[Rfam]
The family of this 100-nucleotide sequence from Methanosarcina mazei is "Pyrrolysine insertion sequence 1". Rfam links the family to the GO term pyrrolysine incorporation. NCBI's taxonomy places the organism under Archaea, Methanobacteriota, Methanosarcinales, Methanosarcina, Methanosarcina mazei. Pairs were carried over by alignment from the consensus structure, which was predicted with WAR.
RNA sequence: UAGGGACCAGAGACUUCCCUGUCAGCUCAGGGAAAUAUAUCCUCUGACUGCAUGGGAGGCCAGAUCUCAUCAGACAGCCACGAAGUGUCACAGCUCAACG
Numbered sequence: 001u002a003g004g005g006a007c008c009a010g011a012g013a014c015u016u017c018c019c020u021g022u023c024a025g026c027u028c029a030g031g032g033a034a035a036u037a038u039a040u041c042c043u044c045u046g047a048c049u050g051c052a053u054g055g056g057a058g059g060c061c062a063g064a065u066c067u068c069a070u071c072a073g074a075c076a077g078c079c080a081c082g083a084a085g086u087g088u089c090a091c092a093g094c095u096c097a098a099c100g
Stems, first nucleotide, its partner, number of pairs: 010089002013086005041059005